[Rfam]
RNA sequence: UGCCCAUCUCUCAGGAUGAACCCAGUGCCUCUGAGCUGCUGUGAUUCUGGCUUCAAAGUAAACGCUCUGAAGAGAGGGGC
Numbered sequence: 001u002g003c004c005c006a007u008c009u010c011u012c013a014g015g016a017u018g019a020a021c022c023c024a025g026u027g028c029c030u031c032u033g034a035g036c037u038g039c040u041g042u043g044a045u046u047c048u049g050g051c052u053u054c055a056a057a058g059u060a061a062a063c064g065c066u067c068u069g070a071a072g073a074g075a076g077g078g079g080c
Stems, first nucleotide, its partner, number of pairs: 002080004007075004

This 80-nucleotide RNA sequence from Heterocephalus glaber belongs to the Rfam family "Small nucleolar RNA SNORD105". From the family's description: U105 belongs to the C/D family of snoRNAs. The pairing is the family consensus, mapped onto this sequence. Rfam classes the family as a C/D-box small nucleolar RNA. Its Rfam clan is "SNORD105 clan".